[Rfam]
Background: This 67-nucleotide RNA sequence from Plasmodium vivax belongs to the Rfam family "small nucleolar RNA snoR25". A search with the family's covariance model found it, with a score of 62 bits. By type it is a C/D-box small nucleolar RNA. A reference for the family is Chakrabarti et al. (2007), "Structural RNAs of known and unknown function identified in malaria parasites by comparative genomics and RNA analysis", RNA. The base pairs follow the family's consensus structure.

RNA sequence: UUUUAGUGAUGAGAAAAACAGACCUGAUUCGAAACCAAUUUGAGAAUGAAUUCUACUUCUGAAAAAA
Numbered sequence: 001u002u003u004u005a006g007u008g009a010u011g012a013g014a015a016a017a018a019c020a021g022a023c024c025u026g027a028u029u030c031g032a033a034a035c036c037a038a039u040u041u042g043a044g045a046a047u048g049a050a051u052u053c054u055a056c057u058u059c060u061g062a063a064a065a066a067a
Stems, first nucleotide, its partner, number of pairs: 001066004